A member of the RNA family "c-di-AMP riboswitch aptamer (ydaO/yuaA leader)" from Jeotgalibacillus campisalis, 154 nucleotides long. The base pairs follow the family's consensus structure. A search with the family's covariance model found it, with a score of 96 bits. Its family is annotated with regulation of gene expression and cyclic-di-AMP binding in the Gene Ontology.
[Rfam]
Nucleotides: 154
Base pairs, nucleotide, nucleotide: 011139012138013137014136018032019031020030033134034133035132036131037130038129043068069119070118071117077093078092079091080090096113097112098111099110
Number, partner (000 for none) and nucleotide at each position: 001000g002000a003000u004000u005000c006000u007000a008000a009000g010000u011139c012138g013137c014136u015000g016000a017000a018032u019031u020030u021000c022000u023000u024000u025000u026000u027000u028000g029000g030020a031019a032018a033134g034133c035132g036131g037130g038129g039000g040000a041000a042000c043068c044000a045000c046000a047000c048000a049000u050000g051000c052000c053000u054000u055000c056000u057000u058000a059000u060000c061000a062000a063000g064000g065000c066000a067000a068043g069119g070118g071117g072000u073000g074000a075000g076000g077093c078092c079091u080090u081000u082000u083000a084000g085000u086000u087000u088000u089000u090080a091079a092078g093077g094000c095000g096113g097112g098111g099110c100000u101000a102000c103000u104000c105000u106000u107000c108000a109000u110099g111098c112097c113096c114000u115000a116000a117071u118070c119069c120000g121000a122000c123000a124000g125000c126000u127000a128000a129038c130037c131036c132035c133034g134033u135000a136014a137013g138012c139011g140000u141000u142000a143000a144000g145000g146000a147000g148000a149000g150000a151000g152000a153000a154000u